[Rfam]
Rfam assigns this 146-nucleotide RNA from Sesamum indicum to the family "Small nucleolar RNA F1/F2/snoR5a". Lineage of the source: Eukaryota > Tracheophyta > Gunneridae > Lamiales > Sesamum. The family has 8 seed sequences and 325 matches in Rfam 15.1.
RNA sequence: GUAUGCCCAUGGUAUCUAAUGUCCAGACUUAUCUUCUGUGUCUGGGCAUUUCGUUUCAGGGCAGAAAUCAACUAAGGAACAGGUCUUUGCGACACGGAUAGCUUCACAUAUAUGAGCUUUCUGUUACUUUAAUCCUGCUUACAUAU
Numbered sequence: 001g002u003a004u005g006c007c008c009a010u011g012g013u014a015u016c017u018a019a020u021g022u023c024c025a026g027a028c029u030u031a032u033c034u035u036c037u038g039u040g041u042c043u044g045g046g047c048a049u050u051u052c053g054u055u056u057c058a059g060g061g062c063a064g065a066a067a068u069c070a071a072c073u074a075a076g077g078a079a080c081a082g083g084u085c086u087u088u089g090c091g092a093c094a095c096g097g098a099u100a101g102c103u104u105c106a107c108a109u110a111u112a113u114g115a116g117c118u119u120u121c122u123g124u125u126a127c128u129u130u131a132a133u134c135c136u137g138c139u140u141a142c143a144u145a146u
Stems, first nucleotide, its partner, number of pairs: 004063005018050011078139001080137003094124005100118004
Dot-bracket structure: ...(((((.........(((((((((((...........)))))))))))........)))))..............(.(((...........(((((.((((...........)))).)))))..........))).).......